[Rfam]
RNA: U7 small nuclear RNA
Organism: Tupaia belangeri
RNA sequence: CAGUGUUACAACUCUUUUAGAAUUUGUCUAGCAGGUUUUCCGGUUUUUACCAGAAAGCCUCU
Numbered sequence: 001c002a003g004u005g006u007u008a009c010a011a012c013u014c015u016u017u018u019a020g021a022a023u024u025u026g027u028c029u030a031g032c033a034g035g036u037u038u039u040c041c042g043g044u045u046u047u048u049a050c051c052a053g054a055a056a057g058c059c060u061c062u
Stems, first nucleotide, its partner, number of pairs: 034059007042051003